Overview
The record is an 80-nucleotide RNA sequence from Simplicispira metamorpha, which matches "int-alpA RNA" in Rfam. Taxonomically the source falls in Simplicispira (Bacteria, Pseudomonadati, Betaproteobacteria, Burkholderiales). Rfam's curators write: Acidobacteria (1 example), Planctomycetes (1 example), Proteobacteria.

RNA sequence: AACACGCCUAGCUAUCGGCUGAUACCCGAUGGUGAACCCCGGACACCCCUGACCGGCUGGCGUGUUUUUUCAUUUCACGG
Number, nucleotide and partner (000 for none) at each position: 001a066002a065003c064004a063005c062006g061007c060008c059009u000010a000011g033012c032013u031014a030015u029016c028017g027018g026019c000020u000021g000022a000023u000024a000025c000026c018027c017028g016029a015030u014031g013032g012033u011034g000035a000036a000037c000038c000039c056040c055041g054042g053043a000044c000045a000046c080047c079048c000049c000050u000051g075052a000053c042054c041055g040056g039057c000058u000059g008060g007061c006062g005063u004064g003065u002066u001067u000068u000069u000070u000071c000072a000073u000074u000075u051076c000077a000078c000079g047080g046